Description
The family of this 127-nucleotide RNA from Erinaceus europaeus is "Small nucleolar RNA SNORA3/SNORA45 family". Taxonomically the source falls in Erinaceus (Eukaryota, Metazoa, Craniata, Vertebrata). The family has 6 seed sequences and 2,080 matches in Rfam 15.1. The match comes from Rfam's covariance-model search (80 bits). For this family Rfam cites "A novel experimental approach for systematic identification of box H/ACA snoRNAs from eukaryotes" (Gu et al., Nucleic Acids Res, 2005). Its Rfam clan is "SNORA3 clan". Its family is annotated with RNA processing and nucleolus in the Gene Ontology. Rfam describes the family as follows. The members of this family belong to the H/ACA class of snoRNAs which are thought to guide the sites of modification of uridines to pseudouridines. This family includes mouse snoMBI-28 and human homologues ACA3 (SNORA3) and ACA3-2 (SNORA45). Both ACA3 and ACA3-2 share the same host gene. MBI-28, ACA3 and ACA3-2 are all predicted to guide the pseudouridylation of residues in 28S rRNA.
RNA sequence: GCCGAGGCCAGAGUCUCGCCCAGGCAUGGUGUUGCCCCGGCGUGCUGGGGUCCUCGGAGAGCAGCCGCUGGCCGUAUUCGCCGGCCGUGGCCCCAUGGCCAGGCUGGUCUCUAGGCCAGGGACAGGC
Numbered sequence: 001g002c003c004g005a006g007g008c009c010a011g012a013g014u015c016u017c018g019c020c021c022a023g024g025c026a027u028g029g030u031g032u033u034g035c036c037c038c039g040g041c042g043u044g045c046u047g048g049g050g051u052c053c054u055c056g057g058a059g060a061g062c063a064g065c066c067g068c069u070g071g072c073c074g075u076a077u078u079c080g081c082c083g084g085c086c087g088u089g090g091c092c093c094c095a096u097g098g099c100c101a102g103g104c105u106g107g108u109c110u111c112u113a114g115g116c117c118a119g120g121g122a123c124a125g126g127c
Stems, first nucleotide, its partner, number of pairs: 002057005007051003012046002015044001017042004023036004068119006080108005086102001088101004